[Rfam]
RNA sequence: GCCAUGCAUCAAGAGUGAGCUGACGCUCCGCCAACCUGCCUCCCGGGCAAGGUGGUAACCCAUCAGGGGAUGUGGCCGACCCGGCAAACAAGCGGGACCCC
Numbered sequence: 001g002c003c004a005u006g007c008a009u010c011a012a013g014a015g016u017g018a019g020c021u022g023a024c025g026c027u028c029c030g031c032c033a034a035c036c037u038g039c040c041u042c043c044c045g046g047g048c049a050a051g052g053u054g055g056u057a058a059c060c061c062a063u064c065a066g067g068g069g070a071u072g073u074g075g076c077c078g079a080c081c082c083g084g085c086a087a088a089c090a091a092g093c094g095g096g097a098c099c100c101c
Stems, first nucleotide, its partner, number of pairs: 006073005015029001017028004030056003035052003038048003043096002075085004